[Rfam]
RNA sequence: AUACCCUUUUAAUUCAGUCCCGUGAGACUGGCAAAGGGAGGUUUUUAAAGGGAAGCCGGAAAAUUGUGCCGGCUUCAUUUUGCAAACCCUCUUUGCCGGAAUAAAGGCAUAGAGGGUUUUUUUAU
Dot-bracket structure: ...((((((....((((((......)))))).)))))).........(((.((((((((.(.....).)))))))).)))...(((((((((.(((..........))).)))))))))......

Source information:
The record is a 125-nucleotide sequence from Siminovitchia fortis, which matches "PyrR binding site" in Rfam. The family's consensus secondary structure is taken from published work. It scores 71 bits against the family's covariance model. The family has 41 seed sequences and 1,498 matches in Rfam 15.1. Rfam classes the family as a cis-regulatory element.